[Rfam]
RNA sequence: CGCGUUUUUCGCCCAGGCGGAGCCGGGCCGCCGCCUGAAGUCCUGAAGGACUUCAUCGACAAGCACCGGGAUGCCUUCGGGGUCGAGCCGCUCUGCAAAGUCUUGCAGGUCGCCCCA
Numbered sequence: 001c002g003c004g005u006u007u008u009u010c011g012c013c014c015a016g017g018c019g020g021a022g023c024c025g026g027g028c029c030g031c032c033g034c035c036u037g038a039a040g041u042c043c044u045g046a047a048g049g050a051c052u053u054c055a056u057c058g059a060c061a062a063g064c065a066c067c068g069g070g071a072u073g074c075c076u077u078c079g080g081g082g083u084c085g086a087g088c089c090g091c092u093c094u095g096c097a098a099a100g101u102c103u104u105g106c107a108g109g110u111c112g113c114c115c116c117a
Stems, first nucleotide, its partner, number of pairs: 016032005079116004089112002092109007
ALIL pseudoknot: a 117-nucleotide RNA from Ottowia flava. The source organism's lineage runs through Bacteria, Pseudomonadota, Burkholderiales, Comamonadaceae and Ottowia. Rfam 15.1 lists 2,146 matches to the family in 1,098 species. The match comes from Rfam's covariance-model search (99 bits). By type it is a cis-regulatory element. The literature on the family includes a 2008 paper in J Biol Chem by Mazauric et al., "Apical loop-internal loop RNA pseudoknots: a new type of stimulator of -1 translational frameshifting in bacteria".